Shown here is a 79-nucleotide RNA from Suricata suricatta, a member of the family "mir-1902 microRNA precursor family". The base pairs follow the family's consensus structure, which was predicted with RNAalifold. The source organism's lineage runs through Eukaryota, Craniata, Teleostomi, Herpestidae and Suricata. Its family is annotated with RISC complex and miRNA-mediated post-transcriptional gene silencing in the Gene Ontology. The match comes from Rfam's covariance-model search (80 bits).
RNA sequence: GACCCUUUUGGGAGUGUUUGCUGUAUCAUUGGAUUUAAUGAAAUGUUUAGAGGUGCAGUAGGCAUGACUUUGAGUAGAU
Number, nucleotide and partner (000 for none) at each position: 001g079002a000003c077004c000005c000006u074007u073008u072009u000010g070011g069012g068013a000014g065015u064016g063017u062018u061019u060020g059021c058022u057023g056024u055025a054026u053027c000028a000029u000030u049031g048032g047033a046034u045035u000036u000037a000038a000039u000040g000041a000042a000043a000044u000045g034046u033047u032048u031049a030050g000051a000052g000053g026054u025055g024056c023057a022058g021059u020060a019061g018062g017063c016064a015065u014066g000067a000068c012069u011070u010071u000072g008073a007074g006075u000076a000077g003078a000079u001